[Rfam]
RNA sequence: UAGCCUGAAAUGAUGUUAUGAAUUCAUGUCUCUUCUGAGAUGUAUUGUGGAGACAGCUAGAUGCAUUUCUGAUCAGGCUU
Numbered sequence: 001u002a003g004c005c006u007g008a009a010a011u012g013a014u015g016u017u018a019u020g021a022a023u024u025c026a027u028g029u030c031u032c033u034u035c036u037g038a039g040a041u042g043u044a045u046u047g048u049g050g051a052g053a054c055a056g057c058u059a060g061a062u063g064c065a066u067u068u069c070u071g072a073u074c075a076g077g078c079u080u
Stems, first nucleotide, its partner, number of pairs: 002079004
Shown here is an 80-nucleotide RNA sequence from Pterocles burchelli, a member of the family "Small nucleolar RNA SNORD111".
On this family, see Galardi et al., Mol Cell Biol 2002: "Purified box C/D snoRNPs are able to reproduce site-specific 2'-O-methylation of target RNA in vitro".
NCBI's taxonomy places the organism under Eukaryota, Eumetazoa, Craniata, Archelosauria, Pterocles.
Rfam links the family to the GO terms nucleolus and RNA processing.